Rfam assigns this 190-nucleotide RNA from Rhipicephalus sanguineus to the family "U2 spliceosomal RNA". Gene Ontology terms of the family: pre-mRNA branch point binding, mRNA branch site recognition and U2 snRNP. It is annotated as a spliceosomal small nuclear RNA. It scores 115 bits against the family's covariance model. About the family: U2 is a small nuclear RNA (snRNA) component of the spliceosome (involved in pre-mRNA splicing). Complementary binding between U2 snRNA (in an area lying towards the 5' end but 3' to hairpin I) and the branchpoint sequence (BPS) of the intron results the bulging out of an unpaired adenosine, on the BPS, which initiates a nucleophilic attack at the intronic 5' splice site, thus starting the first of two transesterification reactions that mediate splicing. Taxonomically the source falls in Rhipicephalus (Eukaryota, Eumetazoa, Arthropoda, Chelicerata).
RNA sequence: ACCAUUUAUGAUGUUCUGUAAAUAACAUGAAAAUAAAACUGUUCUUAUCAGCUUAAUAUCUGAUACGGGUCCUAUUUGGACCCAAGAUAUUAAACUUAUUUUUGGAAUGAAGCGGAGUGCUUGAAGCUUGCUUCACCUCCGCCACGGGUUGGCCCGGUAUUGCACUAUCUCCGGGAUCGGCCAACUCACC
Numbered sequence: 001a002c003c004a005u006u007u008a009u010g011a012u013g014u015u016c017u018g019u020a021a022a023u024a025a026c027a028u029g030a031a032a033a034u035a036a037a038a039c040u041g042u043u044c045u046u047a048u049c050a051g052c053u054u055a056a057u058a059u060c061u062g063a064u065a066c067g068g069g070u071c072c073u074a075u076u077u078g079g080a081c082c083c084a085a086g087a088u089a090u091u092a093a094a095c096u097u098a099u100u101u102u103u104g105g106a107a108u109g110a111a112g113c114g115g116a117g118u119g120c121u122u123g124a125a126g127c128u129u130g131c132u133u134c135a136c137c138u139c140c141g142c143c144a145c146g147g148g149u150u151g152g153c154c155c156g157g158u159a160u161u162g163c164a165c166u167a168u169c170u171c172c173g174g175g176a177u178c179g180g181c182c183a184a185c186u187c188a189c190c
Stems, first nucleotide, its partner, number of pairs: 007024003046065006067083006112142006123134004147182005153175005